[Rfam]
RNA sequence: UGGUAGAUGCACCCUGAUUUGUUUCCCCCUGGUCCCGAGCUAGGGGGAUUUUUUA
Numbered sequence: 001u002g003g004u005a006g007a008u009g010c011a012c013c014c015u016g017a018u019u020u021g022u023u024u025c026c027c028c029c030u031g032g033u034c035c036c037g038a039g040c041u042a043g044g045g046g047g048a049u050u051u052u053u054u055a
Stems, first nucleotide, its partner, number of pairs: 002013003025047009

The family of this 55-nucleotide RNA sequence from Thermocoleostomius sinensis is "Nitrogen stress-induced RNA 1". A reference for the family is Ionescu et al. (2010), "Heterocyst-specific transcription of NsiR1, a non-coding RNA encoded in a tandem array of direct repeats in cyanobacteria", J Mol Biol. It scores 54 bits against the family's covariance model. The base pairs follow the family's consensus structure. The family's RNA type in Rfam is small RNA.